RNA sequence: UUGGAUUGUCAGCAAAGGUGUGCGACUCUAUAAUCCAAAGCUUGUGGGAGGAAUUCACCUCGCCUGUGACCGAUUGUAGAGUCAUACACCUCUACUGACCUUCCAG
Numbered sequence: 001u002u003g004g005a006u007u008g009u010c011a012g013c014a015a016a017g018g019u020g021u022g023c024g025a026c027u028c029u030a031u032a033a034u035c036c037a038a039a040g041c042u043u044g045u046g047g048g049a050g051g052a053a054u055u056c057a058c059c060u061c062g063c064c065u066g067u068g069a070c071c072g073a074u075u076g077u078a079g080a081g082u083c084a085u086a087c088a089c090c091u092c093u094a095c096u097g098a099c100c101u102u103c104c105a106g
Stems, first nucleotide, its partner, number of pairs: 003104003009098003016091006024083003028079004033074003
RNA: MIR1223 microRNA precursor family